Purine riboswitch aptamer: a 95-nucleotide sequence from Williamsoniiplasma somnilux.
It scores 54 bits against the family's covariance model.
Its family is annotated with purine nucleobase biosynthetic process in the Gene Ontology.
RNA sequence: GUAAAUUGAAUAAAGAAAACUUAUAUAAUCCUCCAUAUUGGGGAGGAGUCUCUACCUAACACCUAUGUUAGCCUAUGAGUUGUUUAACUAUCUUU
Numbered sequence: 001g002u003a004a005a006u007u008g009a010a011u012a013a014a015g016a017a018a019a020c021u022u023a024u025a026u027a028a029u030c031c032u033c034c035a036u037a038u039u040g041g042g043g044a045g046g047a048g049u050c051u052c053u054a055c056c057u058a059a060c061a062c063c064u065a066u067g068u069u070a071g072c073c074u075a076u077g078a079g080u081u082g083u084u085u086a087a088c089u090a091u092c093u094u095u
Stems, first nucleotide, its partner, number of pairs: 018081008029047006056071006
Dot-bracket structure: .................((((((((...((((((.......))))))........((((((....))))))..))))))))..............